[Rfam]
RNA sequence: AGCCUUUAUGUGUUGCCCGUUCAUUUCUUUUCAAAAUGAAUGCGGUGUCAAAAAAGGCUUACAUUAACUCUUGUUGUGAUCUUAAAUGGAAAUAAAAGUACUUCCAUUAAAUAAGUUCUGCAGUAAGAACAUAA
Numbered sequence: 001a002g003c004c005u006u007u008a009u010g011u012g013u014u015g016c017c018c019g020u021u022c023a024u025u026u027c028u029u030u031u032c033a034a035a036a037u038g039a040a041u042g043c044g045g046u047g048u049c050a051a052a053a054a055a056g057g058c059u060u061a062c063a064u065u066a067a068c069u070c071u072u073g074u075u076g077u078g079a080u081c082u083u084a085a086a087u088g089g090a091a092a093u094a095a096a097a098g099u100a101c102u103u104c105c106a107u108u109a110a111a112u113a114a115g116u117u118c119u120g121c122a123g124u125a126a127g128a129a130c131a132u133a134a
Stems, first nucleotide, its partner, number of pairs: 002058006011050002014047004018042008070127004074122001078118002084116001087113002091108001095103001

The record is a 134-nucleotide RNA sequence from Anabarilius grahami, which matches "Small nucleolar RNA SNORA13" in Rfam. Rfam's curators write: ACA13 is a member of the H/ACA class of snoRNA that guide the sites of modification of uridines to pseudouridines. Pairs were carried over by alignment from the consensus structure, which was predicted with CMfinder. The source organism's lineage runs through Eukaryota, Vertebrata, Teleostomi, Neopterygii and Anabarilius. By type it is an H/ACA-box small nucleolar RNA. The family has 50 seed sequences and 1,034 matches in Rfam 15.1. A search with the family's covariance model found it, with a score of 72 bits.